[Rfam]
Nucleotides: 068
Base pairs, nucleotide, nucleotide: 001060002059003058004057005056006035007034008033009032010031
Number, partner (000 for none) and nucleotide at each position: 001060c002059g003058a004057c005056c006035g007034c008033u009032g010031c011000g012000g013000g014000g015000g016000c017000u018000g019000g020000a021000a022000a023000a024000g025000c026000c027000c028000g029000g030000a031010g032009c033008a034007g035006c036000u037000a038000a039000g040000g041000c042000c043000a044000c045000a046000c047000g048000g049000a050000c051000a052000g053000c054000c055000g056005g057004g058003u059002c060001g061000a062000a063000u064000g065000c066000c067000g068000a

A member of the RNA family "Streptococcus sRNA SpF59 (ldcC RNA)", 68 nucleotides long. The family's consensus secondary structure was predicted with mfold. The family's RNA type in Rfam is small RNA.